Shown here is a 192-nucleotide RNA from Agrilus planipennis, a member of the family "R2 RNA element".

[Rfam]
RNA sequence: AUUUAAGAAUUAAUAAAUAUUCAGAAACAUAGUUUGUCGAUUCGGCUGAAGAGGACCUUAAUUGGUCCUAAAACGGCCUGAGGUAGAGGGGUUUUAGUCGGUAGGUCCGAGGACUUCUUCCUCGGGAAUCCGACACUACCCAGUCGUACGGACGGCUGGGUGUCUUUUGAAAAUUUCCCCUCUUCCACGAAA
Numbered sequence: 001a002u003u004u005a006a007g008a009a010u011u012a013a014u015a016a017a018u019a020u021u022c023a024g025a026a027a028c029a030u031a032g033u034u035u036g037u038c039g040a041u042u043c044g045g046c047u048g049a050a051g052a053g054g055a056c057c058u059u060a061a062u063u064g065g066u067c068c069u070a071a072a073a074c075g076g077c078c079u080g081a082g083g084u085a086g087a088g089g090g091g092u093u094u095u096a097g098u099c100g101g102u103a104g105g106u107c108c109g110a111g112g113a114c115u116u117c118u119u120c121c122u123c124g125g126g127a128a129u130c131c132g133a134c135a136c137u138a139c140c141c142a143g144u145c146g147u148a149c150g151g152a153c154g155g156c157u158g159g160g161u162g163u164c165u166u167u168u169g170a171a172a173a174u175u176u177c178c179c180c181u182c183u184u185c186c187a188c189g190a191a192a
Stems, first nucleotide, its partner, number of pairs: 039057001041055003062191002065188002082186002085183002088179003097134005106126008136162001138161005

It scores 53 bits against the family's covariance model. This family represents the 3' UTR region of the R2 retrotransposable element. This family is known to interact with the R2-encoded reverse transcriptase in a reaction known as target primed reverse transcription (TPRT). The organism belongs to Agrilus, within Eukaryota.